[Rfam]
This 76-nucleotide sequence from Granulicatella balaenopterae belongs to the Rfam family "RAGATH-18 RNA".
RNA sequence: CCUUUGGACUGUCACAUCAAAUGAGAGUUGGCAUAUGAAUGUAUUCAUUGCAAAAUCAGACAGGAUGAAUAAGGUA
Numbered sequence: 001c002c003u004u005u006g007g008a009c010u011g012u013c014a015c016a017u018c019a020a021a022u023g024a025g026a027g028u029u030g031g032c033a034u035a036u037g038a039a040u041g042u043a044u045u046c047a048u049u050g051c052a053a054a055a056u057c058a059g060a061c062a063g064g065a066u067g068a069a070u071a072a073g074g075u076a
Base pairs, nucleotide, nucleotide: 001074002073003072004071009063010062011061012060013059022058023057024056031051032050033049036047037046
Pairs were carried over by alignment from the consensus structure, which is taken from published work.